[Rfam]
RNA: Plastid-psbN 5UTR RNA
RNA sequence: UGCGACACCCAUUAAAGGAGUAGUUCCCCAUCCAUGGGUUAUUUUACCACAUACUGAAUUC
Number, nucleotide and partner (000 for none) at each position: 001u000002g000003c000004g000005a000006c000007a000008c000009c000010c000011a000012u000013u000014a000015a000016a000017g045018g044019a043020g042021u041022a040023g039024u038025u037026c036027c000028c000029c000030a000031u000032c000033c000034a000035u000036g026037g025038g024039u023040u022041a021042u020043u019044u018045u017046a000047c000048c000049a000050c000051a000052u000053a000054c000055u000056g000057a000058a000059u000060u000061c000